Overview: A member of the RNA family "Transposase-2 RNA" from Parafrankia soli, 67 nucleotides long. NCBI's taxonomy places the organism under Bacteria, Bacillati, Actinomycetota, Frankiales, Parafrankia. The family's RNA type in Rfam is small RNA. The family has 151 seed sequences and 214 matches in Rfam 15.1.
RNA sequence: GAAGCGGGAACUCGGCACGGCUCCGGCCGGUCAGACCGGGACCGCCGCCCCGCAAGGGACGGCUGCG
Numbered sequence: 001g002a003a004g005c006g007g008g009a010a011c012u013c014g015g016c017a018c019g020g021c022u023c024c025g026g027c028c029g030g031u032c033a034g035a036c037c038g039g040g041a042c043c044g045c046c047g048c049c050c051c052g053c054a055a056g057g058g059a060c061g062g063c064u065g066c067g
Stems, first nucleotide, its partner, number of pairs: 011040005018029004044063004049058003